Background: Rfam assigns this 78-nucleotide RNA from Musa balbisiana to the family "Plastid-rpl20 3UTR RNA". The family's RNA type in Rfam is cis-regulatory element. NCBI's taxonomy places the organism under Eukaryota, Tracheophyta, Liliopsida, commelinids, Musa.

RNA sequence: ACAGAAUGCCCGGAGACGGAACUCGGGAAACUAGAAUAAAUAAUUAUAUAGUAAUAGGAAUGACGAAUAUGUUUCAAU
Numbered sequence: 001a002c003a004g005a006a007u008g009c010c011c012g013g014a015g016a017c018g019g020a021a022c023u024c025g026g027g028a029a030a031c032u033a034g035a036a037u038a039a040a041u042a043a044u045u046a047u048a049u050a051g052u053a054a055u056a057g058g059a060a061u062g063a064c065g066a067a068u069a070u071g072u073u074u075c076a077a078u
Stems, first nucleotide, its partner, number of pairs: 007029001009027004014023002062074001063072002

Plastid rpl20 is a non-coding RNA (ncRNA) recognised in plastids. Rfam 15.1 lists 587 matches to the family in 315 species. The literature on the family includes a 2023 paper in Plant Commun by Richter et al., "Retrograde signaling in plants: A critical review focusing on the GUN pathway and beyond".